[Rfam]
Nucleotides: 314
Base pairs, nucleotide, nucleotide: 001314002313003312004311005310006309007308008307011061012060013059014058015033016032017031018030019029020028021027038057039056040055041054065304066303067302068301069300070299071298072297073296076293077292078291079290081287082286086283087282088281089280090279091278092277093276094275095274096273098268099267100266101265102264103263104262107259108258109257110256112254117252118251119250120249121248122247125241126240127239128238129237130236131235132233133232134231135230136228137227138226139178141176142175143174144173145172146169147168148167149166150165151164152163153162154161155160183222184221185220186219191216192215193214194213199208200207201206
Number, partner (000 for none) and nucleotide at each position: 001314u002313a003312a004311g005310u006309g007308g008307c009000u010000a011061g012060a013059c014058u015033g016032g017031a018030g019029g020028g021027u022000u023000a024000g025000g026000g027021g028020u029019c030018c031017u032016c033015u034000g035000u036000a037000a038057g039056c040055a041054c042000a043000c044000a045000c046000c047000c048000c049000c050000u051000u052000u053000g054041g055040u056039g057038c058014g059013g060012u061011c062000g063000a064000a065304g066303u067302u068301c069300a070299g071298g072297a073296g074000g075000c076293g077292g078291c079290u080000u081287u082286u083000u084000a085000a086283g087282g088281a089280a090279g091278u092277a093276u094275a095274a096273g097000c098268c099267u100266a101265g102264g103263a104262a105000a106000a107259c108258a109257a110256c111000a112254u113000a114000g115000a116000a117252a118251c119250c120249u121248c122247g123000u124000c125241c126240u127239a128238c129237a130236g131235g132233a133232u134231u135230g136228g137227u138226g139178g140000u141176g142175g143174u144173g145172a146169a147168g148167u149166u150165u151164u152163u153162a154161c155160u156000g157000g158000a159000g160155g161154g162153u163152a164151a165150a166149a167148a168147u169146u170000a171000g172145u173144c174143a175142u176141c177000u178139u179000c180000g181000a182000u183222a184221u185220g186219g187000g188000a189000a190000c191216g192215g193214g194213u195000c196000a197000g198000g199208c200207c201206c202000g203000g204000a205000a206201g207200g208199g209000a210000g211000c212000a213194g214193c215192u216191c217000u218000a219186c220185c221184g222183u223000u224000a225000a226138c227137a228136u229000u230135c231134a232133a233132u234000g235131c236130u237129u238128g239127u240126a241125g242000a243000a244000u245000c246000c247122c248121g249120g250119g251118g252117u253000g254112g255000a256110g257109u258108u259107g260000g261000a262104u263103u264102u265101u266100u267099a268098g269000a270000u271000c272000a273096c274095u275094u276093a277092u278091a279090u280089u281088u282087u283086u284000g285000a286082g287081a288000u289000u290079a291078g292077u293076c294000c295000a296073c297072u298071u299070c300069u301068g302067a303066a304065c305000a306000u307008g308007c309006c310005a311004u312003u313002u314001a
Shown here is a 314-nucleotide RNA from Methanobrevibacter thaueri, a member of the family "Archaeal signal recognition particle RNA".
Its Rfam clan is "SRP clan".
The match comes from Rfam's covariance-model search (212 bits).
Lineage of the source: Archaea > Methanobacteriati > Methanobacteriota > Methanobacteriaceae > Methanobrevibacter.